[Rfam]
RNA sequence: AUCCAUGACUCCAUGGGGGCUGCCGCCUGUGGCUGUCUCCCUUCCUAGGCAUGGAAGAGCAAUUCCUUGCUGAUUGGCACAACUUUUACCCUGACCUUCUUGUGGGUAUAAGUCGUUGACUGUUGCAAGUUACAGGC
Numbered sequence: 001a002u003c004c005a006u007g008a009c010u011c012c013a014u015g016g017g018g019g020c021u022g023c024c025g026c027c028u029g030u031g032g033c034u035g036u037c038u039c040c041c042u043u044c045c046u047a048g049g050c051a052u053g054g055a056a057g058a059g060c061a062a063u064u065c066c067u068u069g070c071u072g073a074u075u076g077g078c079a080c081a082a083c084u085u086u087u088a089c090c091c092u093g094a095c096c097u098u099c100u101u102g103u104g105g106g107u108a109u110a111a112g113u114c115g116u117u118g119a120c121u122g123u124u125g126c127a128a129g130u131u132a133c134a135g136g137c
Stems, first nucleotide, its partner, number of pairs: 002055006015041004020035001022033003068134002074128003077124001083112003088107004
Description
The family of this 137-nucleotide sequence from Todus mexicanus is "Small nucleolar RNA SNORA24". The base pairs follow the family's consensus structure, which was predicted with RNAfold. By type it is an H/ACA-box small nucleolar RNA. Gene Ontology terms of the family: nucleolus and RNA processing. About the family: ACA24 is a member of the H/ACA class of snoRNA that guide the sites of modification of uridines to pseudouridines.